[Rfam]
RNA sequence: GAAAGGGGAACAUCAACUAAAUACCGCCACGUCCUGUCGCAUUGUCGACACUAGUACAUCCUGUACG
Numbered sequence: 001g002a003a004a005g006g007g008g009a010a011c012a013u014c015a016a017c018u019a020a021a022u023a024c025c026g027c028c029a030c031g032u033c034c035u036g037u038c039g040c041a042u043u044g045u046c047g048a049c050a051c052u053a054g055u056a057c058a059u060c061c062u063g064u065a066c067g
Base pairs, nucleotide, nucleotide: 013048014047016045017044026040027039029037030036054066055065056064057063